Background: This 150-nucleotide RNA from Drosophila erecta belongs to the Rfam family "U4atac minor spliceosomal RNA". Pairs were carried over by alignment from the consensus structure, which is taken from published work. By type it is a spliceosomal small nuclear RNA. U4atac is an essential component of the minor U12-type spliceosome complex which is required for removal of the rarer class of eukaryotic introns (AT-AC, U12-type).

RNA sequence: ACCUUCCUUGUCUUGGGGAGCAGAAAUGUUCAAUGAACGUCUAGUGAGGACAUUGCUGCUGACACCAAUGAUAUUACCCCCGCUCGCCGAUCGUUCGCGAUUGGAGUUCGGAAUUUUUGGACCAGGCGCCCUUACUUUACAGGGCGCCGC
Numbered sequence: 001a002c003c004u005u006c007c008u009u010g011u012c013u014u015g016g017g018g019a020g021c022a023g024a025a026a027u028g029u030u031c032a033a034u035g036a037a038c039g040u041c042u043a044g045u046g047a048g049g050a051c052a053u054u055g056c057u058g059c060u061g062a063c064a065c066c067a068a069u070g071a072u073a074u075u076a077c078c079c080c081c082g083c084u085c086g087c088c089g090a091u092c093g094u095u096c097g098c099g100a101u102u103g104g105a106g107u108u109c110g111g112a113a114u115u116u117u118u119g120g121a122c123c124a125g126g127c128g129c130c131c132u133u134a135c136u137u138u139a140c141a142g143g144g145c146g147c148c149g150c
Stems, first nucleotide, its partner, number of pairs: 005019005020059004025054007037045002080111003087104006